RNA: mir-29 microRNA precursor family
RNA sequence: AGAGGCUGGUUUCACGUGGUGAUUUAGAUUACGUUCCCAGUUUCUAGCACCAUUUGAAAUCAGUGUUCU
Numbered sequence: 001a002g003a004g005g006c007u008g009g010u011u012u013c014a015c016g017u018g019g020u021g022a023u024u025u026a027g028a029u030u031a032c033g034u035u036c037c038c039a040g041u042u043u044c045u046a047g048c049a050c051c052a053u054u055u056g057a058a059a060u061c062a063g064u065g066u067u068c069u
Stems, first nucleotide, its partner, number of pairs: 001069004005064010016053006025046004